[Rfam]
RNA sequence: GAAAGGGCGCGAGGAGAACGCGUCUGGGCUGGGAUAUCGGCAAAAGGCCGGUAGGAUGCGGUAUUAUAAUAAGCAGAGCGUCCGCAGCCUCAAUUAAA
Dot-bracket structure: ....(((((((.......)))))))((((((.....................................................))))))........
Background
Rfam assigns this 98-nucleotide RNA to the family "S4-Clostridia ribosomal protein leader". A reference for the family is Eckert and Weinberg (2020), "Discovery of 20 novel ribosomal leader candidates in bacteria and archaea", BMC Microbiol. Pairs were carried over by alignment from the consensus structure, which is taken from published work. The sequence is in the family's curated seed alignment. Rfam classes the family as a cis-regulatory leader.